[Rfam]
RNA sequence: CGAUUCCACUGGAAGUGCCAUUGCGAAUGGCUGAGAUUGAAAUGCGAUUUCAAAAUUCCUGAACCUGAUCCAGUUCGUACUGGCGUAGGAAAGUGGCUGAAUUCGUGG
Numbered sequence: 001c002g003a004u005u006c007c008a009c010u011g012g013a014a015g016u017g018c019c020a021u022u023g024c025g026a027a028u029g030g031c032u033g034a035g036a037u038u039g040a041a042a043u044g045c046g047a048u049u050u051c052a053a054a055a056u057u058c059c060u061g062a063a064c065c066u067g068a069u070c071c072a073g074u075u076c077g078u079a080c081u082g083g084c085g086u087a088g089g090a091a092a093g094u095g096g097c098u099g100a101a102u103u104c105g106u107g108g
Base pairs, nucleotide, nucleotide: 006096007095008094009093010092011059012058013057014056016053017031018030019029020028021027038052039051040050041049042048064089065088066087067086070083071082072081073080
RNA: TPP riboswitch aptamer (THI element)